[Rfam]
Nucleotides: 060
Stems, first nucleotide, its partner, number of pairs: 006054002009051004022043002025040005
Number, partner (000 for none) and nucleotide at each position: 001000g002000a003000c004000g005000c006054g007053g008000g009051c010050c011049g012048g013000g014000c015000c016000c017000c018000u019000c020000u021000g022043a023042c024000u025040g026039u027038c028037g029036c030000c031000u032000u033000c034000g035000g036029g037028u038027g039026a040025u041000c042023g043022u044000g045000a046000u047000g048012u049011c050010g051009g052000a053007c054006c055000g056000c057000g058000u059000a060000a
Notes: terC RNA: a 60-nucleotide sequence from Pseudaminobacter soli. The family has 129 seed sequences and 1,112 matches in Rfam 15.1. Pairs were carried over by alignment from the consensus structure, which is taken from published work. The family's RNA type in Rfam is cis-regulatory element.